[Rfam]
RNA: c-di-GMP-I riboswitch aptamer
Organism: Paenibacillus methanolicus
RNA sequence: UCUCGAUAAAGGCAAAACCGGCGAAAGCCGGCGACGCAAAGCUACAGGGGCUAAGCCGCGGAAGACGCGGGACUGCCAGCCAGCUGCCGAA
Number, nucleotide and partner (000 for none) at each position: 001u000002c000003u000004c000005g000006a000007u000008a000009a000010a000011g000012g037013c036014a000015a000016a000017a000018c031019c030020g029021g028022c027023g000024a000025a000026a000027g022028c021029c020030g019031g018032c000033g000034a000035c000036g013037c012038a000039a000040a085041g084042c083043u082044a000045c000046a000047g081048g080049g077050g076051c075052u000053a000054a000055g000056c070057c069058g068059c067060g000061g000062a000063a000064g000065a000066c000067g059068c058069g057070g056071g000072a000073c000074u000075g051076c050077c049078a000079g000080c048081c047082a043083g042084c041085u040086g000087c000088c000089g000090a000091a000